[Rfam]
Record summary:
Shown here is a 137-nucleotide sequence from Nostoc sp. PCC 7107, a member of the family "c-di-AMP riboswitch aptamer (ydaO/yuaA leader)". Its family is annotated with cyclic-di-AMP binding and regulation of gene expression in the Gene Ontology. The literature on the family includes a 2004 paper in Proc Natl Acad Sci U S A by Barrick et al., "New RNA motifs suggest an expanded scope for riboswitches in bacterial genetic control". It scores 61 bits against the family's covariance model.
RNA sequence: UUUAGCGGGUCGCCUAAUUCAAAUUCAUCAACAAUCAUGAUUUGAAACGGAGGAACCAAAUAUAUGGGGCUAAUCUUUAAGAAAGACACCUUCCAGUCUUAGCCCGUCAGCUAACUCCGUCGGUAAUGGAAGGAACU
Numbered sequence: 001u002u003u004a005g006c007g008g009g010u011c012g013c014c015u016a017a018u019u020c021a022a023a024u025u026c027a028u029c030a031a032c033a034a035u036c037a038u039g040a041u042u043u044g045a046a047a048c049g050g051a052g053g054a055a056c057c058a059a060a061u062a063u064a065u066g067g068g069g070c071u072a073a074u075c076u077u078u079a080a081g082a083a084a085g086a087c088a089c090c091u092u093c094c095a096g097u098c099u100u101a102g103c104c105c106g107u108c109a110g111c112u113a114a115c116u117c118c119g120u121c122g123g124u125a126a127u128g129g130a131a132g133g134a135a136c137u
Base pairs, nucleotide, nucleotide: 012124013123014122018046019045020044021043022042023041024040025039047120048119049118050117051116052115057066058065067105068104069103075081076080084099085098086097087096